mir-274 microRNA precursor family: a 90-nucleotide RNA from Vanessa tameamea. Taxonomically the source falls in Vanessa (Eukaryota, Bilateria, Mandibulata, Aparaglossata).
RNA sequence: UUGUUAGCGAAGUUGGUUUGUGACCGUCACUAACGGGCAGUUGAUAUCUGUUUUGCUCGUUUUGUCGAUCGCAAAAUGAACUCGCUAGAC
Numbered sequence: 001u002u003g004u005u006a007g008c009g010a011a012g013u014u015g016g017u018u019u020g021u022g023a024c025c026g027u028c029a030c031u032a033a034c035g036g037g038c039a040g041u042u043g044a045u046a047u048c049u050g051u052u053u054u055g056c057u058c059g060u061u062u063u064g065u066c067g068a069u070c071g072c073a074a075a076a077u078g079a080a081c082u083c084g085c086u087a088g089a090c
Stems, first nucleotide, its partner, number of pairs: 004088007013079003017075007025067002032061008